RNA sequence: AGCGUGGAUGAUGAAAACUGGACCUUAGGUAGGCCUUUUUUUGGGCUGUUUUGGCCUAAAGCUUUGGGCUUACCAAUGGUAGGGCUUGUCAUAGUUACACUGACACGCA
Numbered sequence: 001a002g003c004g005u006g007g008a009u010g011a012u013g014a015a016a017a018c019u020g021g022a023c024c025u026u027a028g029g030u031a032g033g034c035c036u037u038u039u040u041u042u043g044g045g046c047u048g049u050u051u052u053g054g055c056c057u058a059a060a061g062c063u064u065u066g067g068g069c070u071u072a073c074c075a076a077u078g079g080u081a082g083g084g085c086u087u088g089u090c091a092u093a094g095u096u097a098c099a100c101u102g103a104c105a106c107g108c109a
Base pairs, nucleotide, nucleotide: 002108003107004106005105006104
This 109-nucleotide sequence from Oryzias sinensis belongs to the Rfam family "Small nucleolar RNA SNORD46". U40 is a C/D box small nucleolar RNA, also known as snoZ153 in plants. The human sequence has also been annotated in the sequence databases as U46. U40 is encoded in intron 2 of the ribosomal protein S8 gene in human, and is hypothesised to guide methylation of 2'-O-ribose residues on 28S ribosomal RNA. This family represents vertebrate U40. The organism belongs to Oryzias, within Eukaryota. For this family Rfam cites "Intron-encoded, antisense small nucleolar RNAs: the characterization of nine novel species points to their direct role as guides for the 2'-O-ribose methylation of rRNAs" (Nicoloso et al., J Mol Biol, 1996). The family's RNA type in Rfam is C/D-box small nucleolar RNA. Rfam 15.1 lists 723 matches to the family in 611 species. Rfam links the family to the GO terms RNA processing and nucleolus. The match comes from Rfam's covariance-model search (54 bits).